A member of the RNA family "Streptomyces-metH RNA" from Streptomyces aurantiacus, 121 nucleotides long. The family's consensus secondary structure is taken from published work. The family's RNA type in Rfam is small RNA.

[Rfam]
RNA sequence: CGCGUCCGUCCCGUGGACGCACCCGACCCUUCGGCGCCGCCGCGGGCUACCCUGACGGCGUGCGCCUUCCACGAGAAGCGCAAAGCCGACAGCCGUCGCACCCCAGGGAGCAUCUUCCAUG
Number, nucleotide and partner (000 for none) at each position: 001c000002g000003c000004g000005u000006c000007c000008g000009u000010c000011c000012c000013g000014u000015g000016g000017a000018c000019g000020c000021a000022c000023c000024c000025g000026a000027c000028c000029c000030u000031u000032c000033g000034g000035c000036g000037c000038c000039g000040c000041c000042g000043c000044g000045g000046g000047c000048u000049a000050c000051c000052c000053u000054g000055a000056c000057g000058g000059c000060g000061u082062g081063c080064g079065c000066c078067u077068u076069c075070c000071a000072c000073g000074a000075g069076a068077a067078g066079c064080g063081c062082a061083a000084a000085g099086c098087c000088g097089a096090c095091a000092g000093c000094c000095g090096u089097c088098g086099c085100a000101c000102c000103c000104c000105a000106g000107g000108g000109a000110g000111c000112a000113u000114c000115u000116u000117c000118c000119a000120u000121g000